This 83-nucleotide RNA sequence from Thalassolituus maritimus belongs to the Rfam family "tRNA".
The organism belongs to Thalassolituus, within Bacteria.

RNA sequence: GCGGAUGUGGUGGAAUUGGUAGACACGCCAUCUUGAGGGGGUGGUGAGCAACGCUCGUGCGAGUUCGAGUCUCGCCAUCCGCA
Numbered sequence: 001g002c003g004g005a006u007g008u009g010g011u012g013g014a015a016u017u018g019g020u021a022g023a024c025a026c027g028c029c030a031u032c033u034u035g036a037g038g039g040g041g042u043g044g045u046g047a048g049c050a051a052c053g054c055u056c057g058u059g060c061g062a063g064u065u066c067g068a069g070u071c072u073c074g075c076c077a078u079c080c081g082c083a
Stems, first nucleotide, its partner, number of pairs: 001082007010026003028044005059075005